[Rfam]
RNA sequence: CUCUUACGCCUGAAAUUUGCUUUUGACCUGGCCAUACGUGCACUCGUUAAUUGAGUUUUAUUGCAAAAAGGUGAGCAAAGUUUCAGGUGUGUGAGGGC
Numbered sequence: 001c002u003c004u005u006a007c008g009c010c011u012g013a014a015a016u017u018u019g020c021u022u023u024u025g026a027c028c029u030g031g032c033c034a035u036a037c038g039u040g041c042a043c044u045c046g047u048u049a050a051u052u053g054a055g056u057u058u059u060a061u062u063g064c065a066a067a068a069a070g071g072u073g074a075g076c077a078a079a080g081u082u083u084c085a086g087g088u089g090u091g092u093g094a095g096g097g098c
Stems, first nucleotide, its partner, number of pairs: 001095003005091001007089007014081001016079003020075003027071003